The record is a 51-nucleotide sequence, which matches "DUF2693-FD RNA" in Rfam.
The sequence is in the family's curated seed alignment.
About the family: DUF2693-FD RNA is a non-coding RNA (ncRNA) recognised in Bacteroides by a bioinformatic analisis by Zasha Weinberg. No recognised genes.
Rfam classes the family as a small RNA.
The family's consensus secondary structure is taken from published work.
[Rfam]
RNA sequence: AUCCCGCGGAAAGCUAACGACUUGAAUCCCGGAGCGAGACCGGGGCGGGAG
Numbered sequence: 001a002u003c004c005c006g007c008g009g010a011a012a013g014c015u016a017a018c019g020a021c022u023u024g025a026a027u028c029c030c031g032g033a034g035c036g037a038g039a040c041c042g043g044g045g046c047g048g049g050a051g
Stems, first nucleotide, its partner, number of pairs: 002050006011023002019035001028044005